[Rfam]
RNA sequence: GGCUGGGAAAAGAGCGAUCGAUUCCGACCGUAUGAGAGAAGUCAGCAGAGGGCAUAGUAGCCGGGAAACGCACCGCGAGAGAUCCUGCGGGGUAAUCGUUGGCAGAGACAAGGUGAAGGCC
Numbered sequence: 001g002g003c004u005g006g007g008a009a010a011a012g013a014g015c016g017a018u019c020g021a022u023u024c025c026g027a028c029c030g031u032a033u034g035a036g037a038g039a040a041g042u043c044a045g046c047a048g049a050g051g052g053c054a055u056a057g058u059a060g061c062c063g064g065g066a067a068a069c070g071c072a073c074c075g076c077g078a079g080a081g082a083u084c085c086u087g088c089g090g091g092g093u094a095a096u097c098g099u100u101g102g103c104a105g106a107g108a109c110a111a112g113g114u115g116a117a118g119g120c121c
Base pairs, nucleotide, nucleotide: 001029002028006025007024008023009022012019013018042049043048051121052120053119060114061113062112